[Rfam]
RNA sequence: UGAAGUGAUGAUGUAAUUUGCGUCAGAGGAGAGAUUUGGCUACAGUUGCCUGCUGUAAUUAUGCCAUUCUCCUACUGUGACGACACUUAUUUCGUCUGAUCA
Numbered sequence: 001u002g003a004a005g006u007g008a009u010g011a012u013g014u015a016a017u018u019u020g021c022g023u024c025a026g027a028g029g030a031g032a033g034a035u036u037u038g039g040c041u042a043c044a045g046u047u048g049c050c051u052g053c054u055g056u057a058a059u060u061a062u063g064c065c066a067u068u069c070u071c072c073u074a075c076u077g078u079g080a081c082g083a084c085a086c087u088u089a090u091u092u093c094g095u096c097u098g099a100u101c102a
Stems, first nucleotide, its partner, number of pairs: 001102003021082004031071004039064002041057005
Dot-bracket structure: (((.................((((......((((....(((((((.......))))).....))...)))).......)))).................)))

Annotation: The family of this 102-nucleotide sequence from Trichoplax adhaerens is "Small nucleolar RNA SNORD16". The base pairs follow the family's consensus structure, which was predicted with PFOLD. Lineage of the source: Eukaryota > Metazoa > Eumetazoa > Trichoplacea > Trichoplax. The match comes from Rfam's covariance-model search (64 bits). Its Rfam clan is "SNORD16 clan".